[Rfam]
Shown here is an 80-nucleotide RNA from Morella rubra, a member of the family "Small nucleolar RNA Z155". Lineage of the source: Eukaryota > Streptophyta > Tracheophyta > Magnoliopsida > Morella. The family has 8 seed sequences and 429 matches in Rfam 15.1. It is annotated as a C/D-box small nucleolar RNA. Rfam links the family to the GO terms nucleolus and RNA processing. The literature on the family includes a 2003 paper in Nucleic Acids Res by Chen et al., "The high diversity of snoRNAs in plants: identification and comparative study of 120 snoRNA genes from Oryza sativa".
RNA sequence: CAUUGACGUGAUGAUAUCCUUUUCGGAAGAUAAAACGAUGUCGACUAAACAAAUAUCAGACUACAAUUAUCUGAUCAAUG
Numbered sequence: 001c002a003u004u005g006a007c008g009u010g011a012u013g014a015u016a017u018c019c020u021u022u023u024c025g026g027a028a029g030a031u032a033a034a035a036c037g038a039u040g041u042c043g044a045c046u047a048a049a050c051a052a053a054u055a056u057c058a059g060a061c062u063a064c065a066a067u068u069a070u071c072u073g074a075u076c077a078a079u080g
Stems, first nucleotide, its partner, number of pairs: 001080006